[Rfam]
Source information
Rfam assigns this 104-nucleotide RNA from Cannabis sativa to the family "MIR398 microRNA precursor family". Lineage of the source: Eukaryota > Mesangiospermae > Gunneridae > Pentapetalae > Cannabis. On this family, see Jones-Rhoades and Bartel, Mol Cell 2004: "Computational identification of plant microRNAs and their targets, including a stress-induced miRNA".
RNA sequence: AGGAGUCUAUCAGGGGUUUCCUGAGAAUACACGAAUCGAUAUUAUAAAAUGUAUGUGAUUCGAUAAUUUUUCGUGUGUUCUCAGGUCGCCCCUGCUAGAUUUUU
Numbered sequence: 001a002g003g004a005g006u007c008u009a010u011c012a013g014g015g016g017u018u019u020c021c022u023g024a025g026a027a028u029a030c031a032c033g034a035a036u037c038g039a040u041a042u043u044a045u046a047a048a049a050u051g052u053a054u055g056u057g058a059u060u061c062g063a064u065a066a067u068u069u070u071u072c073g074u075g076u077g078u079u080c081u082c083a084g085g086u087c088g089c090c091c092c093u094g095c096u097a098g099a100u101u102u103u104u
Stems, first nucleotide, its partner, number of pairs: 007098002011094004016089002023082010